[Rfam]
RNA sequence: GUGAGUUGAUCGAUUUCGAGUUUUUGGCCACAAAUAUAAUCUGGAAUCUUUAAUUCGCAG
Numbered sequence: 001g002u003g004a005g006u007u008g009a010u011c012g013a014u015u016u017c018g019a020g021u022u023u024u025u026g027g028c029c030a031c032a033a034a035u036a037u038a039a040u041c042u043g044g045a046a047u048c049u050u051u052a053a054u055u056c057g058c059a060g
Stems, first nucleotide, its partner, number of pairs: 001058009012048006019042002022039002024033003
RNA: mir-1005 microRNA precursor family
Organism: Drosophila simulans